[Rfam]
The record is a 113-nucleotide sequence from Medicago truncatula, which matches "MIR2593 microRNA precursor family" in Rfam. Pairs were carried over by alignment from the consensus structure, which was predicted with RNAalifold. Gene Ontology terms of the family: miRNA-mediated post-transcriptional gene silencing and RISC complex. The organism belongs to Medicago, within Eukaryota. Rfam 15.1 lists 1,262 matches to the family in 6 species.
RNA sequence: AUAUAAACAAAUUUUGACUUUUAGAUUCAUUCAAUCAAUAAUGUAUUUGGUCUAUAAUAUAAAUCACAUACAUCAUUGAUUGAAUGAACCUAAAAGUUAAAAUUUGCUUAUAU
Number, nucleotide and partner (000 for none) at each position: 001a000002u112003a111004u110005a109006a108007a000008c106009a105010a104011a103012u102013u000014u100015u099016g098017a097018c096019u095020u094021u093022u092023a091024g090025a000026u088027u087028c086029a085030u084031u083032c082033a081034a080035u079036c078037a077038a076039u075040a000041a073042u072043g071044u000045a000046u000047u000048u066049g065050g064051u063052c000053u000054a000055u000056a000057a000058u000059a000060u000061a000062a000063a051064u050065c049066a048067c000068a000069u000070a000071c043072a042073u041074c000075a039076u038077u037078g036079a035080u034081u033082g032083a031084a030085u029086g028087a027088a026089c000090c024091u023092a022093a021094a020095a019096g018097u017098u016099a015100a014101a000102a012103u011104u010105u009106g008107c000108u006109u005110a004111u003112a002113u000